RNA sequence: UUUGGGAAGUGAUGAUAAGAUAUAUCGAUAUUUUCAUAGGCAUUUUUGCAAUGCUGAACAAAAAUAUUUGCACGUCAGUCUGAUCCCAUU
Numbered sequence: 001u002u003u004g005g006g007a008a009g010u011g012a013u014g015a016u017a018a019g020a021u022a023u024a025u026c027g028a029u030a031u032u033u034u035c036a037u038a039g040g041c042a043u044u045u046u047u048g049c050a051a052u053g054c055u056g057a058a059c060a061a062a063a064a065u066a067u068u069u070g071c072a073c074g075u076c077a078g079u080c081u082g083a084u085c086c087c088a089u090u
Stems, first nucleotide, its partner, number of pairs: 003088005
RNA: Small nucleolar RNA Z122